RNA sequence: ACCAGAUGAACGCCGAGUGCUGCCGGCAUCUGGUUUCCUGGACUUACGGCAGCAGUGGGGGACCCACUCUUUCCGGUUGCUUGUCAACCUUGGGGUGAAGCCGCAUCCGCGGCCGGGACAUACCUCGUUCCGAACCCGACAGCUCACCUCACAGGCGUCCGAGGUAUCACCA
Numbered sequence: 001a002c003c004a005g006a007u008g009a010a011c012g013c014c015g016a017g018u019g020c021u022g023c024c025g026g027c028a029u030c031u032g033g034u035u036u037c038c039u040g041g042a043c044u045u046a047c048g049g050c051a052g053c054a055g056u057g058g059g060g061g062a063c064c065c066a067c068u069c070u071u072u073c074c075g076g077u078u079g080c081u082u083g084u085c086a087a088c089c090u091u092g093g094g095g096u097g098a099a100g101c102c103g104c105a106u107c108c109g110c111g112g113c114c115g116g117g118a119c120a121u122a123c124c125u126c127g128u129u130c131c132g133a134a135c136c137c138g139a140c141a142g143c144u145c146a147c148c149u150c151a152c153a154g155g156c157g158u159c160c161g162a163g164g165u166a167u168c169a170c171c172a
Base pairs, nucleotide, nucleotide: 011157012156013155014154018054019053020052021051022050023049024048025047055152056151057150058149059148060147065092066091093137094136095135101112102111103110104109115131116130117129118128
A member of the RNA family "c-di-AMP riboswitch aptamer (ydaO/yuaA leader)" from Jonesia denitrificans, 172 nucleotides long. The match comes from Rfam's covariance-model search (71 bits). NCBI's taxonomy places the organism under Bacteria, Bacillati, Micrococcales, Jonesiaceae, Jonesia denitrificans. Its family is annotated with regulation of gene expression and cyclic-di-AMP binding in the Gene Ontology.